[Rfam]
Nucleotides: 092
Base pairs, nucleotide, nucleotide: 005055006054007053008052009051010050011049012048015045016044017080018079019078020077021076028041029040030039031038069087071085072084073083
Number, partner (000 for none) and nucleotide at each position: 001000g002000g003000u004000u005055g006054g007053g008052g009051u010050c011049g012048u013000g014000a015045c016044u017080g018079g019078c020077g021076u022000c023000u024000u025000g026000g027000g028041a029040u030039g031038g032000a033000u034000g035000u036000a037000a038031c039030c040029a041028u042000c043000g044016g045015g046000g047000a048012g049011c050010g051009g052008c053007u054006c055005u056000c057000u058000u059000g060000c061000a062000a063000g064000a065000u066000g067000u068000c069087g070000u071085g072084c073083c074000g075000u076021g077020c078019g079018c080017c081000u082000g083073g084072g085071c086000u087069u088000c089000u090000g091000a092000g